[Rfam]
RNA sequence: UCCUUCUCAGCUUUUGAUUGUUGCUCAGAAGGCGUGGCAAUCUGACAAGCCUUCGAGUGACUAUCAAAUCUUGUGGAGAC
Numbered sequence: 001u002c003c004u005u006c007u008c009a010g011c012u013u014u015u016g017a018u019u020g021u022u023g024c025u026c027a028g029a030a031g032g033c034g035u036g037g038c039a040a041u042c043u044g045a046c047a048a049g050c051c052u053u054c055g056a057g058u059g060a061c062u063a064u065c066a067a068a069u070c071u072u073g074u075g076g077a078g079a080c
Stems, first nucleotide, its partner, number of pairs: 003078004013068006020061007028054006
About this RNA:
The record is an 80-nucleotide RNA sequence from Ixodes scapularis, which matches "mir-315 microRNA precursor family" in Rfam. For this family Rfam cites "The small RNA profile during Drosophila melanogaster development" (Aravin et al., Dev Cell, 2003). Taxonomically the source falls in Ixodes (Eukaryota, Eumetazoa, Protostomia, Arthropoda).